Rfam assigns this 85-nucleotide RNA sequence from Medicago truncatula to the family "MIR2617 microRNA precursor family". Rfam links the family to the GO terms RISC complex and miRNA-mediated post-transcriptional gene silencing.
RNA sequence: AAGAAGUGUGACAUUCCGUUCAUGUGAAUUACUCUGAUUAAAUAAAUAAAAUUUUUACGUUGGGAAAACGGGGUGUUACACUUCU
Numbered sequence: 001a002a003g004a005a006g007u008g009u010g011a012c013a014u015u016c017c018g019u020u021c022a023u024g025u026g027a028a029u030u031a032c033u034c035u036g037a038u039u040a041a042a043u044a045a046a047u048a049a050a051a052u053u054u055u056u057a058c059g060u061u062g063g064g065a066a067a068a069c070g071g072g073g074u075g076u077u078a079c080a081c082u083u084c085u
Stems, first nucleotide, its partner, number of pairs: 002085019